[Rfam]
RNA: Small nucleolar RNA SNORD34
Organism: Cinclus mexicanus
RNA sequence: CGGUGUCUAUGAUGUCAUUUUUACCUACAUUGUUUGACUUUUCUUGAGAAAAAACCCCAAAUCCUGAGACACUU
Numbered sequence: 001c002g003g004u005g006u007c008u009a010u011g012a013u014g015u016c017a018u019u020u021u022u023a024c025c026u027a028c029a030u031u032g033u034u035u036g037a038c039u040u041u042u043c044u045u046g047a048g049a050a051a052a053a054a055c056c057c058c059a060a061a062u063c064c065u066g067a068g069a070c071a072c073u074u
Base pairs, nucleotide, nucleotide: 002073004071005070006069007068